[Rfam]
Source information:
Rfam assigns this 78-nucleotide sequence from Rhipicephalus microplus to the family "mir-9/mir-79 microRNA precursor family". The match comes from Rfam's covariance-model search (71 bits). The family's consensus secondary structure was predicted with RNAalifold.
Nucleotides: 078
Stems, first nucleotide, its partner, number of pairs: 003076001005074001007072002011068007019060008028051005
Number, partner (000 for none) and nucleotide at each position: 001000c002000u003076g004000a005074u006000a007072u008071u009000u010000u011068c012067u013066u014065u015064g016063g017062u018000u019060a020059u021058c022057u023056a024055g025054c026053u027000g028051u029050a030049u031048g032047a033000g034000u035000g036000a037000a038000a039000a040000u041000u042000g043000a044000a045000c046000a047032u048031c049030a050029u051028a052000a053026a054025g055024c056023u057022a058021g059020g060019u061000u062017a063016c064015c065014a066013a067012a068011g069000u070000u071008a072007a073000c074005a075000g076003c077000u078000u